RNA sequence: GGUCACCCGUUUCGGGGGGCUACAAUAUAGGCGGGCCACUGUUUCAGCGGUCCCGUCACAAGCAAACGGAAGACAGAAA
Numbered sequence: 001g002g003u004c005a006c007c008c009g010u011u012u013c014g015g016g017g018g019g020c021u022a023c024a025a026u027a028u029a030g031g032c033g034g035g036c037c038a039c040u041g042u043u044u045c046a047g048c049g050g051u052c053c054c055g056u057c058a059c060a061a062g063c064a065a066a067c068g069g070a071a072g073a074c075a076g077a078a079a
Stems, first nucleotide, its partner, number of pairs: 001021004006017003030057006
Background:
L2-Alphaproteobacteria ribosomal protein leader: a 79-nucleotide RNA from Roseovarius litorisediminis. It scores 54 bits against the family's covariance model. NCBI's taxonomy places the organism under Bacteria, Pseudomonadota, Alphaproteobacteria, Rhodobacterales, Roseovarius.